Shown here is a 134-nucleotide RNA sequence from Callithrix jacchus, a member of the family "Small nucleolar RNA SNORA42/SNORA80 family". It scores 112 bits against the family's covariance model. Rfam classes the family as an H/ACA-box small nucleolar RNA. Rfam links the family to the GO terms nucleolus and RNA processing.

RNA sequence: GCAGGGGUUUGGAUUCGUGACAGGCCCAUCGCCCUGGGCCUGUCAUAGUAACCCAUGCCAGAGCAGACUGUCCCCAAACCAUUGCCUGGCCUCUGUGCCUGUAGGCUGCUCGCACUGAAGUGGCUUGCACAGCG
Dot-bracket structure: (((.((.(......(.((((.(((((.........)).))).)))).).).))..)))..............((.....((...(.((((((..........))))))...)...))....))...........
The base pairs follow the family's consensus structure, which was predicted with RNAalifold. The members of this family belong to the H/ACA class of snoRNAs that guide the sites of modification of uridines to pseudouridines. Human ACA42 (SNORA42) was cloned from HeLa cells by immunoprecipitation with anti-GAR1 antibody. Its is predicted to guide the pseudouridylation of residues U109 and U572 of 18S rRNA. ACA42 shares the same host gene with ACA26, ACA46, ACA50. This family also includes mammalian snoRNA ACA67 (SNORA80) which was identified by computational screening and its expression in mouse experimentally verified by Northern blot and primer extension analysis. ACA67 is proposed to guide the pseudouridylation of the same 18S rRNA residues as ACA42. On this family, see Schattner et al., RNA 2006: "A computational screen for mammalian pseudouridylation guide H/ACA RNAs".